Background:
Hepatitis C virus stem-loop SL8001 RNA: a 58-nucleotide RNA sequence from Orthohepacivirus hominis. Pairs were carried over by alignment from the consensus structure, which was predicted with RNAfold.
[Rfam]
RNA sequence: CUCGACAAAAAGGCCCUUAAUCACAUCAAGGGCGUGUGGCAAGACUUACUGAAUGACU
Numbered sequence: 001c002u003c004g005a006c007a008a009a010a011a012g013g014c015c016c017u018u019a020a021u022c023a024c025a026u027c028a029a030g031g032g033c034g035u036g037u038g039g040c041a042a043g044a045c046u047u048a049c050u051g052a053a054u055g056a057c058u
Stems, first nucleotide, its partner, number of pairs: 006051002010047003014043001021039006